[Rfam]
RNA sequence: UUAACGCAAACUUGUAUGGAGUUGGCAUGUUUGCCUACGUUUGCCGCUAGGGGCGCUGUUACAACUGCAUACAAAUUUGCGUUA
Numbered sequence: 001u002u003a004a005c006g007c008a009a010a011c012u013u014g015u016a017u018g019g020a021g022u023u024g025g026c027a028u029g030u031u032u033g034c035c036u037a038c039g040u041u042u043g044c045c046g047c048u049a050g051g052g053g054c055g056c057u058g059u060u061a062c063a064a065c066u067g068c069a070u071a072c073a074a075a076u077u078u079g080c081g082u083u084a
Stems, first nucleotide, its partner, number of pairs: 008078003012074005018068001020066005027059003034052003039047002